[Rfam]
Nucleotides: 424
Base pairs, nucleotide, nucleotide: 001420002419003418004417005416006415007414008413009412010411011409012377013376014375015374016373017372018371020060021059022058023057026054027053028052065407066406067405069404070403071402072401073400074255075254076253077252081313082312083311084310086251087250088249089248090247091105092104093103094102095101106120107118108117109116110115121246122245126244127243128240129239130238143185144184145181146180147179149177150176151175152174193211194210195209196208197207198206213235214233215232216231217230218229219228220227221226259334260333261332262331293325294324295323296322297321298320305317306316307315308314341360346355347354348353
Number, partner (000 for none) and nucleotide at each position: 001420c002419g003418a004417g005416c006415c007414g008413g009412c010411c011409g012377g013376g014375c015374g016373g017372c018371c019000g020060c021059g022058g023057c024000a025000a026054c027053g028052g029000a030000a031000c032000c033000g034000c035000g036000c037000g038000g039000u040000g041000c042000a043000c044000c045000g046000c047000g048000c049000a050000g051000g052028c053027c054026g055000g056000a057023g058022u059021c060020g061000a062000g063000g064000a065407a066406a067405g068000u069404c070403c071402g072401g073400a074255c075254u076253c077252c078000a079000c080000c081313g082312a083311g084310c085000a086251g087250g088249g089248u090247g091105g092104u093103u094102g095101c096000u097000a098000a099000c100000g101095g102094c103093a104092a105091c106120c107118c108117g109116g110115g111000g112000c113000g114000a115110c116109c117108c118107g119000c120106g121246g122245g123000a124000a125000a126244g127243u128240g129239c130238c131000a132000c133000a134000g135000a136000a137000a138000g139000u140000a141000g142000a143185c144184c145181g146180c147179c148000g149177g150176c151175g152174g153000c154000g155000g156000u157000g158000g159000a160000c161000c162000g163000c164000g165000u166000g167000u168000u169000c170000a171000c172000c173000a174152c175151c176150g177149c178000g179147g180146g181145u182000a183000a184144g185143g186000g187000u188000g189000a190000a191000a192000g193211g194210g195209u196208g197207c198206g199000g200000u201000a202000a203000g204000a205000g206198c207197g208196c209195a210194c211193c212000a213235g214233c215232g216231c217230c218229g219228c220227a221226g222000g223000u224000g225000a226221c227220u228219g229218c230217g231216g232215c233214g234000g235213c236000u237000c238130g239129g240128u241000a242000a243127a244126c245122c246121c247090c248089a249088c250087c251086c252077g253076g254075a255074g256000c257000a258000a259334g260333g261332c262331c263000g264000a265000a266000g267000u268000c269000c270000g271000c272000a273000c274000c275000g276000c277000u278000g279000g280000c281000c282000g283000g284000u285000g286000c287000g288000g289000g290000u291000g292000c293325g294324c295323g296322a297321g298320u299000g300000u301000u302000c303000g304000a305317g306316g307315a308314c309000u310084g311083c312082u313081c314308g315307u316306c317305c318000g319000a320298g321297c322296u323295c324294g325293c326000g327000g328000g329000u330000u331262g332261g333260c334259u335000g336000c337000u338000u339000g340000a341360g342000g343000u344000a345000c346355c347354c348353g349000g350000c351000g352000a353348c354347g355346g356000a357000g358000u359000g360341c361000c362000c363000a364000g365000a366000u367000g368000g369000a370000u371018g372017g373016u374015c375014g376013c377012c378000g379000c380000u381000g382000a383000c384000c385000c386000c387000g388000g389000u390000c391000a392000g393000c394000a395000c396000a397000g398000g399000a400073u401072c402071c403070g404069g405067c406066u407065u408000a409011c410000a411010g412009g413008u414007c415006g416005g417004c418003u419002c420001g421000u422000u423000c424000g
The family of this 424-nucleotide RNA sequence from Gordonia hirsuta is "Bacterial RNase P class A".
The family's RNA type in Rfam is ribozyme.
The match comes from Rfam's covariance-model search (258 bits).
Rfam describes the family as follows. Ribonuclease P (RNase P) is a ubiquitous endoribonuclease, found in archaea, bacteria and eukarya as well as chloroplasts and mitochondria.